[Rfam]
RNA sequence: UUCGAUCGCGGGGCAAUUCACACGCCCGGUGUUAAAGCAGCGCGGGGUGCCGAAGGGCAGAGGCCUGACGGUUGCGUUGCUUGGCCGGGCGGAGGCUCAAC
Numbered sequence: 001u002u003c004g005a006u007c008g009c010g011g012g013g014c015a016a017u018u019c020a021c022a023c024g025c026c027c028g029g030u031g032u033u034a035a036a037g038c039a040g041c042g043c044g045g046g047g048u049g050c051c052g053a054a055g056g057g058c059a060g061a062g063g064c065c066u067g068a069c070g071g072u073u074g075c076g077u078u079g080c081u082u083g084g085c086c087g088g089g090c091g092g093a094g095g096c097u098c099a100a101c
Base pairs, nucleotide, nucleotide: 023091024090025089026088027087028086029085030084035082036081037080038079039078041076042075043074044073049072050071051070052069
The record is a 101-nucleotide sequence from Halothiobacillus diazotrophicus, which matches "t44 RNA" in Rfam. Taxonomically the source falls in Halothiobacillus (Bacteria, Gammaproteobacteria, Chromatiales, Halothiobacillaceae).